[Rfam]
RNA: permuted transfer-messenger RNA
RNA sequence: GGCGCUGAAACUCAACGCGGACUGCGGGCAGACCCGGGGGCAGUACCCGGCGCCUCCACCCGAGCAGCUGACAAUGCGAGAUCUCGUUUUUACGAGUUCUCAUUCCGUGCGACGGACUUUGUCGAGCUGCUCCGGCGGGGGCGAAACAGGAUCGAUGGCCGCGAAGAAGUGUUGAAUUGUUCCCGGCAUGAUACCGCCGUUAUCGGGUCAAAACCUAAAUGCAAACGAUAACGUUCGCAUGAACGAAGUGCGCCUCGCGGCGUAA
Numbered sequence: 001g002g003c004g005c006u007g008a009a010a011c012u013c014a015a016c017g018c019g020g021a022c023u024g025c026g027g028g029c030a031g032a033c034c035c036g037g038g039g040g041c042a043g044u045a046c047c048c049g050g051c052g053c054c055u056c057c058a059c060c061c062g063a064g065c066a067g068c069u070g071a072c073a074a075u076g077c078g079a080g081a082u083c084u085c086g087u088u089u090u091u092a093c094g095a096g097u098u099c100u101c102a103u104u105c106c107g108u109g110c111g112a113c114g115g116a117c118u119u120u121g122u123c124g125a126g127c128u129g130c131u132c133c134g135g136c137g138g139g140g141g142c143g144a145a146a147c148a149g150g151a152u153c154g155a156u157g158g159c160c161g162c163g164a165a166g167a168a169g170u171g172u173u174g175a176a177u178u179g180u181u182c183c184c185g186g187c188a189u190g191a192u193a194c195c196g197c198c199g200u201u202a203u204c205g206g207g208u209c210a211a212a213a214c215c216u217a218a219a220u221g222c223a224a225a226c227g228a229u230a231a232c233g234u235u236c237g238c239a240u241g242a243a244c245g246a247a248g249u250g251c252g253c254c255u256c257g258c259g260g261c262g263u264a265a
Stems, first nucleotide, its partner, number of pairs: 001183002004180002014173004025161003029157002034050005051143007184199004